RNA sequence: GCUAAGACUUUUUCUUGUUCGGUACAGCUCCGAGACUUUGGAAUCAUAGCUGGCUGGCGAAGAAAUGCCCUUCCA
Numbered sequence: 001g002c003u004a005a006g007a008c009u010u011u012u013u014c015u016u017g018u019u020c021g022g023u024a025c026a027g028c029u030c031c032g033a034g035a036c037u038u039u040g041g042a043a044u045c046a047u048a049g050c051u052g053g054c055u056g057g058c059g060a061a062g063a064a065a066u067g068c069c070c071u072u073c074c075a
Stems, first nucleotide, its partner, number of pairs: 005071002009067001011065006019057004025052005032044001

mir-4900 microRNA precursor family: a 75-nucleotide RNA sequence from Branchiostoma floridae. Pairs were carried over by alignment from the consensus structure, which was predicted with RNAalifold. Rfam links the family to the GO terms miRNA-mediated post-transcriptional gene silencing and RISC complex.